Archaeal large subunit ribosomal RNA: a 246-nucleotide part of an RNA from Candidatus Methanoplasma termitum. The family has 91 seed sequences and 2,955 matches in Rfam 15.1. A search with the family's covariance model found it, with a score of 2722 bits. The family's consensus secondary structure is taken from published work. Clan: LSU clan.
[Rfam]
RNA sequence: GGUACCUGACGAGAAGGACCCUUUAGUACGAGAGGAACAGGGGUUCGUCGCCUCUAGUUUAUCAGUUGUCUGACAAGGCAUGCUGAGUAGCCACGCGGCAGUGGAUAAGAGCUGAAGGCAUCUAAGCUCGAAGCCACCUUGAAAAAGAGGUACCAGGACGCUCAUAAAUGAUGAGUUUGAUAGAAGCCGGAUGUAAGUAUCGAGGUUCGCCGAGAUAUUCAGUCCUGGCUCACUAAAGUUCGUUUA
Numbered sequence: 001g002g003u004a005c006c007u008g009a010c011g012a013g014a015a016g017g018a019c020c021c022u023u024u025a026g027u028a029c030g031a032g033a034g035g036a037a038c039a040g041g042g043g044u045u046c047g048u049c050g051c052c053u054c055u056a057g058u059u060u061a062u063c064a065g066u067u068g069u070c071u072g073a074c075a076a077g078g079c080a081u082g083c084u085g086a087g088u089a090g091c092c093a094c095g096c097g098g099c100a101g102u103g104g105a106u107a108a109g110a111g112c113u114g115a116a117g118g119c120a121u122c123u124a125a126g127c128u129c130g131a132a133g134c135c136a137c138c139u140u141g142a143a144a145a146a147g148a149g150g151u152a153c154c155a156g157g158a159c160g161c162u163c164a165u166a167a168a169u170g171a172u173g174a175g176u177u178u179g180a181u182a183g184a185a186g187c188c189g190g191a192u193g194u195a196a197g198u199a200u201c202g203a204g205g206u207u208c209g210c211c212g213a214g215a216u217a218u219u220c221a222g223u224c225c226u227g228g229c230u231c232a233c234u235a236a237a238g239u240u241c242g243u244u245u246a
Stems, first nucleotide, its partner, number of pairs: 001154007010141004016046008047099005055093001057091001062086005067080005102136003109129005156241004160176005181235003185230004189225003197218005204211001
Dot-bracket structure: (((((((..((((..((((((((...............))))))))(((((...(.(....((((((((((....))))).)))))....).).)))))..(((....(((((...........)))))....))).))))......))))))).(((((((((.......)))))....(((.(((((((.....(((((..(......)..)))))....))).))))..)))..)))).....